[Rfam]
Nucleotides: 511
Stems, first nucleotide, its partner, number of pairs: 006390005014382002020321002024318002027315001028312002035309001037307005045301004051233002054230001058229004063224002065111001068108001075103001077102003082097003086093001119220001122217002127212001129210002131206005140197001143196001150191001153189003157185002161178002165174001235295003240290002244286002251281003256277003260271001262269001329342004353377001355375003360372004391431001393429005399423003403418001405416001407415001437476002440473001443470002446467001447465003451461002477510002480505003484501001486497003
Number, partner (000 for none) and nucleotide at each position: 001000g002000u003000g004000g005000c006390g007389g008388u009387g010386g011000c012000c013000u014382c015381c016000c017000a018000c019000c020321g021320g022000g023000c024318g025317u026000c027315c028312g029311c030000g031000u032000c033000g034000a035309g036000c037307a038306g039305g040304g041303c042000c043000u044000c045301c046300u047299c048298g049000c050000c051233g052232u053000a054230c055000c056000g057000g058229u059228c060227g061226c062000c063224g064223u065111c066000g067000g068108c069000g070000a071000g072000u073000a074000c075103g076000u077102c078101g079100a080000c081000g082097g083096c084095g085000a086093u087000c088000u089000c090000g091000u092000c093086a094000c095084c096083g097082u098000a099000c100079u101078u102077g103075c104000c105000g106000a107000c108068g109000g110000a111065g112000g113000u114000a115000c116000g117000g118000c119220u120000g121000a122217u123216c124000c125000g126000g127212c128000c129210g130209u131206g132205g133204g134203c135202g136000a137000u138000c139000a140197g141000a142000u143196g144000g145000a146000u147000c148000c149000g150191c151000g152000c153189g154188g155187c156000g157185g158184g159000a160000g161178c162177g163000c164000c165174g166000c167000g168000c169000u170000c171000g172000g173000c174165c175000a176000g177162c178161g179000u180000c181000u182000c183000g184158c185157c186000g187155g188154c189153c190000c191150g192000g193000a194000a195000g196143u197140c198000g199000c200000g201000c202135u203134g204133c205132u206131c207000g208000c209130a210129c211000c212127g213000g214000u215000c216123g217122g218000c219000g220119a221000u222000g223064g224063c225000c226061g227060u228059g229058a230054g231000c232052a233051c234000c235295u236294c237293c238000a239000u240290g241289u242000c243000c244286u245285c246000g247000u248000a249000g250000c251281c252280g253279c254000u255000c256277a257276g258275c259000a260271g261000g262269g263000c264000c265000a266000g267000u268000u269262c270000a271260c272000c273000c274000a275258g276257u277256u278000c279253g280252c281251g282000c283000g284000g285245g286244a287000u288000c289241a290240c291000c292000c293237g294236g295235a296000c297000c298048c299047g300046g301045g302000u303041g304040c305039c306038u307037u308000c309035c310000u311029g312028c313000a314000c315027g316000a317025a318024c319000u320021c321020c322000a323000c324000c325000c326000g327000c328000c329342c330341g331340u332339c333000a334000c335000c336000g337000a338000c339332g340331g341330u342329g343000u344000a345000g346000c347000u348000c349000a350000g351000c352000c353377g354000c355375c356374g357373g358000u359000u360372c361371a362370c363369c364000c365000g366000g367000u368000a369363g370362g371361u372360g373357c374356c375355g376000c377353c378000c379000u380000u381015g382014g383000u384000c385000u386010c387009c388008a389007c390006c391431c392000a393429g394428g395427g396426g397425a398000g399423c400422u401421u402000c403418c404000g405416c406000a407415g408000c409000a410000g411000c412000c413000a414000g415407c416405g417000g418403g419000a420000g421401g422400a423399g424000a425397u426396c427395u428394c429393c430000c431391g432000c433000a434000u435000c436000u437476g438475c439000g440473g441000g442000a443470c444469g445000g446467a447465c448464u449463u450000g451461g452460u453000c454000g455000u456000g457000g458000u459000g460452g461451c462000g463449a464448g465447g466000u467446u468000a469444c470443g471000g472000g473440c474000g475438g476437c477510g478509g479000c480505c481504g482503u483000g484501c485000u486497c487496a488495g489000a490000c491000u492000g493000g494000a495488c496487u497486g498000c499000c500000g501484g502000g503482g504481c505480g506000g507000c508000u509478c510477c511000a
Shown here is a 511-nucleotide sequence from Streptomyces paludis, a member of the family "Saccharopolyspora sRNA 350". A search with the family's covariance model found it, with a score of 116 bits. NCBI's taxonomy places the organism under Bacteria, Bacillati, Actinomycetota, Streptomycetaceae, Streptomyces. A reference for the family is Liu et al. (2013), "Prediction and characterization of small non-coding RNAs related to secondary metabolites in Saccharopolyspora erythraea", PLoS One.